[Rfam]
Nucleotides: 216
Stems, first nucleotide, its partner, number of pairs: 001137005014127002017124001026115003030112003036052005053097007138153003
Number, partner (000 for none) and nucleotide at each position: 001137g002136g003135c004134g005133a006000u007000a008000a009000a010000c011000g012000g013000g014127c015126g016000a017124c018000a019000g020000a021000a022000u023000a024000a025000g026115c027114g028113u029000a030112g031111c032110g033000g034000a035000c036052c037051c038050g039049g040048g041000g042000g043000c044000a045000g046000u047000a048040c049039c050038c051037g052036g053097c054096g055095c056094c057093u058092c059091c060000a061000c062000c063000a064000a065000a066000u067000u068000u069000c070000c071000c072000u073000g074000a075000a076000a077000g078000c079000g080000u081000c082000a083000g084000g085000g086000u087000g088000u089000a090000c091059g092058g093057g094056g095055g096054c097053g098000a099000a100000a101000u102000a103000g104000g105000a106000u107000c108000g109000a110032c111031g112030c113028g114027c115026g116000u117000g118000g119000u120000a121000a122000a123000a124017g125000c126015c127014g128000u129000c130000u131000u132000u133005u134004c135003g136002c137001u138153c139152g140151g141000c142000a143000u144000g145000g146000c147000a148000c149000c150000a151140c152139c153138g154000u155000u156000a157000u158000c159000g160000g161000g162000c163000c164000a165000u166000a167000u168000g169000a170000u171000a172000g173000u174000u175000g176000c177000g178000a179000a180000u181000g182000a183000c184000a185000a186000c187000u188000a189000u190000g191000c192000u193000g194000g195000g196000g197000a198000a199000c200000u201000c202000c203000g204000c205000g206000c207000c208000g209000c210000u211000g212000c213000u214000u215000a216000a